[Rfam]
RNA sequence: CUUUCAUCAAGAGUGACAGAGGGACUGGCCCUAUGAAGUCACGGCAACCGCUCGCGGCGCAAGCUGCGGGGACCAGGUGCCAAAUCCAGCCGAAAGCCUGCCAGCAGCGAUGCCGUAUCGACGCUAAAGGGCCAACGGAAAAGAUGAGAU
Numbered sequence: 001c002u003u004u005c006a007u008c009a010a011g012a013g014u015g016a017c018a019g020a021g022g023g024a025c026u027g028g029c030c031c032u033a034u035g036a037a038g039u040c041a042c043g044g045c046a047a048c049c050g051c052u053c054g055c056g057g058c059g060c061a062a063g064c065u066g067c068g069g070g071g072a073c074c075a076g077g078u079g080c081c082a083a084a085u086c087c088a089g090c091c092g093a094a095a096g097c098c099u100g101c102c103a104g105c106a107g108c109g110a111u112g113c114c115g116u117a118u119c120g121a122c123g124c125u126a127a128a129g130g131g132c133c134a135a136c137g138g139a140a141a142a143g144a145u146g147a148g149a150u
Stems, first nucleotide, its partner, number of pairs: 002149007013042005021031003025089004043081004048077002050073001052071002085142001090138003

Rfam assigns this 150-nucleotide sequence from Chthoniobacter flavus to the family "SAM riboswitch aptamer (S box leader)". Taxonomically the source falls in Chthoniobacter flavus (Bacteria, Pseudomonadati, Verrucomicrobiota, Chthoniobacterales). The family's consensus secondary structure is taken from published work.